[Rfam]
RNA sequence: GCGGCGGGCCGUGACUGGCGUUCGGGUGGAUCACCACCGGGGAGCGGCCCGCGUACGUGCCGUACGCCGACUGCCGCGCGCCUGGGCGAACCGC
Numbered sequence: 001g002c003g004g005c006g007g008g009c010c011g012u013g014a015c016u017g018g019c020g021u022u023c024g025g026g027u028g029g030a031u032c033a034c035c036a037c038c039g040g041g042g043a044g045c046g047g048c049c050c051g052c053g054u055a056c057g058u059g060c061c062g063u064a065c066g067c068c069g070a071c072u073g074c075c076g077c078g079c080g081c082c083u084g085g086g087c088g089a090a091c092c093g094c
Base pairs, nucleotide, nucleotide: 004052005051006050007049008048009047010046011045012044015041016040017082018081019080020079021078026037027036028035029034072088073087074086075085
ZMP/ZTP riboswitch aptamer (pfl RNA motif): a 94-nucleotide RNA from Streptomyces subrutilus.
Pairs were carried over by alignment from the consensus structure, which is taken from published work.
Taxonomically the source falls in Streptomyces (Bacteria, Actinomycetota, Kitasatosporales, Streptomycetaceae).
Gene Ontology terms of the family: one-carbon metabolic process and regulation of purine nucleotide biosynthetic process.
The match comes from Rfam's covariance-model search (53 bits).